[Rfam]
RNA sequence: CAAAACAAAGAUAAAAACGCAACGCAUGCGACUGUCAUGCCAGAGCCGGUAGGUAGCCCGGCCGUCACAGAAUUCUCUGUGGUAAGUAACCUGCCCCUCCGGGUUGUCCGUUCUUUGUUCAUGCACU
Numbered sequence: 001c002a003a004a005a006c007a008a009a010g011a012u013a014a015a016a017a018c019g020c021a022a023c024g025c026a027u028g029c030g031a032c033u034g035u036c037a038u039g040c041c042a043g044a045g046c047c048g049g050u051a052g053g054u055a056g057c058c059c060g061g062c063c064g065u066c067a068c069a070g071a072a073u074u075c076u077c078u079g080u081g082g083u084a085a086g087u088a089a090c091c092u093g094c095c096c097c098u099c100c101g102g103g104u105u106g107u108c109c110g111u112u113c114u115u116u117g118u119u120c121a122u123g124c125a126c127u
Stems, first nucleotide, its partner, number of pairs: 004119008045062005064083008093104004
Shown here is a 127-nucleotide sequence from [Clostridium] aminophilum, a member of the family "azaaromatic riboswitch aptamer (yjdF RNA)". Lineage of the source: Bacteria > Bacillota > Clostridia > Lachnospiraceae > Lachnoclostridium.